Shown here is a 106-nucleotide RNA from Bacteroidetes bacterium UKL13-3, a member of the family "Bacteroidales small SRP". The family's consensus secondary structure is taken from published work. The match comes from Rfam's covariance-model search (86 bits). Its family is annotated with SRP-dependent cotranslational protein targeting to membrane, signal sequence recognition and signal recognition particle, plasma membrane targeting in the Gene Ontology.

RNA sequence: UUGCGCCCGGCAAGCCUGGUACGACCAGCUCCUGCUGAAUCCCCCAGGACAGGAAUGUAGCAAGGGUAGGCGGUUGUAGCGGUGCGAUAUUAUGGCUUGCUUUUUU
Numbered sequence: 001u002u003g004c005g006c007c008c009g010g011c012a013a014g015c016c017u018g019g020u021a022c023g024a025c026c027a028g029c030u031c032c033u034g035c036u037g038a039a040u041c042c043c044c045c046a047g048g049a050c051a052g053g054a055a056u057g058u059a060g061c062a063a064g065g066g067u068a069g070g071c072g073g074u075u076g077u078a079g080c081g082g083u084g085c086g087a088u089a090u091u092a093u094g095g096c097u098u099g100c101u102u103u104u105u106u
Stems, first nucleotide, its partner, number of pairs: 009101007017092005022086002024083002
Dot-bracket structure: ........(((((((.(((((((((........................................................)).)).)))))..))))))).....